RNA sequence: UGGCUUGGGCGUAAGCUCUUUGGGCCACCGCAGGCGGGAAGAAUUUCC
Numbered sequence: 001u002g003g004c005u006u007g008g009g010c011g012u013a014a015g016c017u018c019u020u021u022g023g024g025c026c027a028c029c030g031c032a033g034g035c036g037g038g039a040a041g042a043a044u045u046u047c048c
Stems, first nucleotide, its partner, number of pairs: 001027006007018004
Shown here is a 48-nucleotide RNA, a member of the family "DUF3800-XI RNA". Rfam's curators put it in the seed alignment. Actinobacteria, Firmicutes, Proteobacteria, Spirochaetes (1 example).